[Rfam]
RNA sequence: AUUUAUCAAAUUUUAAAACAAUUCAAACUAUUAAGAAUAAAUGACCAUUCAACGAAAGGAGUAUAAUAAAAUGACUUAUCUAUCUACGCUAGACCUACCAACAACUCAACAUGCUAUUAUCAUUUUAUUAUACUCGUAAGGACUCGAACUUUAGAAAAGUUUUAACUUCUAAAUGUUUAAGUCCUAUUUCUAGUUGGAUGGGACUUAAUAA
Number, nucleotide and partner (000 for none) at each position: 001a000002u000003u000004u000005a000006u000007c000008a000009a000010a000011u000012u000013u000014u000015a000016a000017a000018a000019c000020a000021a000022u000023u000024c000025a209026a000027a000028c000029u000030a000031u000032u000033a000034a000035g000036a000037a000038u000039a000040a000041a000042u000043g000044a000045c000046c200047a199048u198049u197050c196051a195052a194053c193054g000055a191056a000057a000058g000059g135060a134061g133062u132063a000064u119065a118066a117067u116068a115069a112070a000071a000072u109073g000074a000075c000076u000077u000078a000079u000080c000081u000082a000083u000084c000085u000086a000087c000088g000089c000090u000091a000092g000093a000094c000095c000096u000097a000098c000099c000100a000101a000102c000103a000104a000105c000106u000107c000108a000109a072110c000111a000112u069113g000114c000115u068116a067117u066118u065119a064120u000121c000122a000123u000124u000125u000126u000127a000128u000129u000130a000131u000132a062133c061134u060135c059136g000137u000138a000139a185140g184141g183142a182143c181144u000145c000146g000147a000148a177149c175150u000151u172152u171153a170154g169155a168156a167157a000158a000159g000160u000161u000162u000163u000164a000165a000166c000167u156168u155169c154170u153171a152172a151173a000174u000175g149176u000177u148178u000179a000180a000181g143182u142183c141184c140185u139186a000187u000188u000189u000190c000191u055192a000193g053194u052195u051196g050197g049198a048199u047200g046201g000202g000203a000204c000205u000206u000207a000208a000209u025210a000211a000
RNA: Listeria sRNA rli60
Organism: Staphylococcus epidermidis